Rfam assigns this 398-nucleotide part of an RNA from Fusarium sp. NRRL 52700 to the family "Ascomycota telomerase RNA". Clan: Telomerase clan. The pairing is the family consensus, mapped onto this sequence. The source organism's lineage runs through Eukaryota, Opisthokonta, Fungi, Pezizomycotina and Fusarium. The literature on the family includes a 2013 paper in Nucleic Acids Res by Qi et al., "The common ancestral core of vertebrate and fungal telomerase RNAs".
RNA sequence: AAUCAUACAGAAGGAGCUCUUUCGUCAGUGUCGGUGGAGUUUCAGACUGCGUUCUGCCAUGACAACCUUUUGGUGGAGUCGUGUUUAAGAAGGUAUUGGGCCAUUAUGGAAUUGUCAAGCUCACGGAACAGUCCUCACCUUUGUAAUGGUCGUUGUUGCAGGAGGAUACUUGUGGUUGGUGUUGGAAGCAUCACCGGGACCCAUCUCGAGUUGGAGUCAAAGUUUCGUGCUUGUCUGGUGUUGUGAAAGACCCUUCUGUCAAGUUGAAUUUCACGACUCUGGCCGCACUGUUGAAGCUGGGUUGCAUUGUUGGAUCUAGGACAGGCCUUGUUGGGUAGGGUAGUCCUGGCUGUUCUCUCGCCUGAAAAUGGUGUGGAGGACAGCCCCCCGCGGUGAGG
Numbered sequence: 001a002a003u004c005a006u007a008c009a010g011a012a013g014g015a016g017c018u019c020u021u022u023c024g025u026c027a028g029u030g031u032c033g034g035u036g037g038a039g040u041u042u043c044a045g046a047c048u049g050c051g052u053u054c055u056g057c058c059a060u061g062a063c064a065a066c067c068u069u070u071u072g073g074u075g076g077a078g079u080c081g082u083g084u085u086u087a088a089g090a091a092g093g094u095a096u097u098g099g100g101c102c103a104u105u106a107u108g109g110a111a112u113u114g115u116c117a118a119g120c121u122c123a124c125g126g127a128a129c130a131g132u133c134c135u136c137a138c139c140u141u142u143g144u145a146a147u148g149g150u151c152g153u154u155g156u157u158g159c160a161g162g163a164g165g166a167u168a169c170u171u172g173u174g175g176u177u178g179g180u181g182u183u184g185g186a187a188g189c190a191u192c193a194c195c196g197g198g199a200c201c202c203a204u205c206u207c208g209a210g211u212u213g214g215a216g217u218c219a220a221a222g223u224u225u226c227g228u229g230c231u232u233g234u235c236u237g238g239u240g241u242u243g244u245g246a247a248a249g250a251c252c253c254u255u256c257u258g259u260c261a262a263g264u265u266g267a268a269u270u271u272c273a274c275g276a277c278u279c280u281g282g283c284c285g286c287a288c289u290g291u292u293g294a295a296g297c298u299g300g301g302u303u304g305c306a307u308u309g310u311u312g313g314a315u316c317u318a319g320g321a322c323a324g325g326c327c328u329u330g331u332u333g334g335g336u337a338g339g340g341u342a343g344u345c346c347u348g349g350c351u352g353u354u355c356u357c358u359c360g361c362c363u364g365a366a367a368a369u370g371g372u373g374u375g376g377a378g379g380a381c382a383g384c385c386c387c388c389c390g391c392g393g394u395g396a397g398g
Stems, first nucleotide, its partner, number of pairs: 198218003201214003220232004